RNA: Archaeal small subunit ribosomal RNA, nucleotides 1 to 503
RNA sequence: AUUCCGGUUGAUCCUGCCGGAGGUCAUUGCUAUCGGGGUCCGAUUUAGCCAUGCUAGUCGCGCGGGUUAGACCCGCGGCGUAUAGCUCAGUAACACGUGGCCAAACUACCCUACAGACGAGAACAACCUCGGGAAACUGAGGCUAACACUCGAUACGCGUUGACCGUUUGAACACGUCGACGCUCAAACGCUCCGGCGCUGUAGGAUGUGGCUGCGGCCGAUUAGGUAGACGGUGGGGUAACGGCCCACCGUGCCGAUAAUCGGUACGGGUUGUGAGAGCAAGAGCCCGGAGACGGAAUCUGAGACAAGAUUCCGGGCCCUACGGGGCGCAGCAGGCGCGAAACCUUUACACUGCACGCCAGUGCGAUAAGGGGACCCCGAGUGAAAGGGCAUAUCGCCCUUUCUUUUCUGAACCGUAGGGAGGUUCAGGAACAAGAGCUGGGCAAGACCGGUGCCAGCCGCCGCGGUAAUACCGGCAGCUCGAGUGAUGACCGAUUUUAUUG
Numbered sequence: 001a002u003u004c005c006g007g008u009u010g011a012u013c014c015u016g017c018c019g020g021a022g023g024u025c026a027u028u029g030c031u032a033u034c035g036g037g038g039u040c041c042g043a044u045u046u047a048g049c050c051a052u053g054c055u056a057g058u059c060g061c062g063c064g065g066g067u068u069a070g071a072c073c074c075g076c077g078g079c080g081u082a083u084a085g086c087u088c089a090g091u092a093a094c095a096c097g098u099g100g101c102c103a104a105a106c107u108a109c110c111c112u113a114c115a116g117a118c119g120a121g122a123a124c125a126a127c128c129u130c131g132g133g134a135a136a137c138u139g140a141g142g143c144u145a146a147c148a149c150u151c152g153a154u155a156c157g158c159g160u161u162g163a164c165c166g167u168u169u170g171a172a173c174a175c176g177u178c179g180a181c182g183c184u185c186a187a188a189c190g191c192u193c194c195g196g197c198g199c200u201g202u203a204g205g206a207u208g209u210g211g212c213u214g215c216g217g218c219c220g221a222u223u224a225g226g227u228a229g230a231c232g233g234u235g236g237g238g239u240a241a242c243g244g245c246c247c248a249c250c251g252u253g254c255c256g257a258u259a260a261u262c263g264g265u266a267c268g269g270g271u272u273g274u275g276a277g278a279g280c281a282a283g284a285g286c287c288c289g290g291a292g293a294c295g296g297a298a299u300c301u302g303a304g305a306c307a308a309g310a311u312u313c314c315g316g317g318c319c320c321u322a323c324g325g326g327g328c329g330c331a332g333c334a335g336g337c338g339c340g341a342a343a344c345c346u347u348u349a350c351a352c353u354g355c356a357c358g359c360c361a362g363u364g365c366g367a368u369a370a371g372g373g374g375a376c377c378c379c380g381a382g383u384g385a386a387a388g389g390g391c392a393u394a395u396c397g398c399c400c401u402u403u404c405u406u407u408u409c410u411g412a413a414c415c416g417u418a419g420g421g422a423g424g425u426u427c428a429g430g431a432a433c434a435a436g437a438g439c440u441g442g443g444c445a446a447g448a449c450c451g452g453u454g455c456c457a458g459c460c461g462c463c464g465c466g467g468u469a470a471u472a473c474c475g476g477c478a479g480c481u482c483g484a485g486u487g488a489u490g491a492c493c494g495a496u497u498u499u500a501u502u503g
Base pairs, nucleotide, nucleotide: 004020005019006018007017008016022493023492024491025490026489027488028487029486030485031484033381034380035379036378037377038376039375040374041373042339048337049336050335052334053333054332057079058078059077062076063075064074065073066072067071086292087291088290096216097215098214099213100212101211102210105209106208110205111204112203113202114201115200116199118152119151120150121149127142128141129140130139131138132137157183158182159181160180161179162178163177164176166175167174190197191196218264219263220262225255226254227253230252231251232250233249234248235247236246237245267289268288269287270286271282272281273280274279294315295314296313297312298311299310317328318327319326320325345371347370348369349368353366354365355364356363357362384404385403386402387401388400389399390398391397409429410428411427412426413425414424415423436482437481438480439479440478441477449476450475451474452473458465459464